[Rfam]
RNA sequence: CAGGCAUGCUGGAGCUCCGCAGCGGCGCCCGGGACUGAAGUGCCCGACACCGUCAUCCACUCGGAGCUUGA
Numbered sequence: 001c002a003g004g005c006a007u008g009c010u011g012g013a014g015c016u017c018c019g020c021a022g023c024g025g026c027g028c029c030c031g032g033g034a035c036u037g038a039a040g041u042g043c044c045c046g047a048c049a050c051c052g053u054c055a056u057c058c059a060c061u062c063g064g065a066g067c068u069u070g071a
Base pairs, nucleotide, nucleotide: 012069013068014067015066016065017064018063019062023052024051025050030046031045032044033043035040